Overview:
mir-33 microRNA precursor family: a 60-nucleotide RNA from Salmo salar.

RNA sequence: GUGCAUUGUAGUUGCAUUGCAUGAUCCUGCAGCCCAUUGCAAUGUGUCUGCAGUGCAGUA
Numbered sequence: 001g002u003g004c005a006u007u008g009u010a011g012u013u014g015c016a017u018u019g020c021a022u023g024a025u026c027c028u029g030c031a032g033c034c035c036a037u038u039g040c041a042a043u044g045u046g047u048c049u050g051c052a053g054u055g056c057a058g059u060a
Stems, first nucleotide, its partner, number of pairs: 002057010014045001016043006
Dot-bracket structure: .((((((((((..(.((((((................)))))).)..))))))))))...

The sequence is in the family's curated seed alignment.
The literature on the family includes a 2010 paper in Mol Hum Reprod by Ahn et al., "MicroRNA transcriptome in the newborn mouse ovaries determined by massive parallel sequencing".
The organism belongs to Salmo, within Eukaryota.
Pairs were carried over by alignment from the consensus structure, which was predicted with PFOLD.